[Rfam]
RNA sequence: UGCCGAAUAUUCAUAUUAACUCGUAUAAUGCCGGGGAUAUGGCCCGGAAGUAUCUACCUGAGAACCUUAAAUUUUCGGACUACGAGUGAAUACGUUACUUGA
Numbered sequence: 001u002g003c004c005g006a007a008u009a010u011u012c013a014u015a016u017u018a019a020c021u022c023g024u025a026u027a028a029u030g031c032c033g034g035g036g037a038u039a040u041g042g043c044c045c046g047g048a049a050g051u052a053u054c055u056a057c058c059u060g061a062g063a064a065c066c067u068u069a070a071a072u073u074u075u076c077g078g079a080c081u082a083c084g085a086g087u088g089a090a091u092a093c094g095u096u097a098c099u100u101g102a
Stems, first nucleotide, its partner, number of pairs: 019087007029049001031047005058078007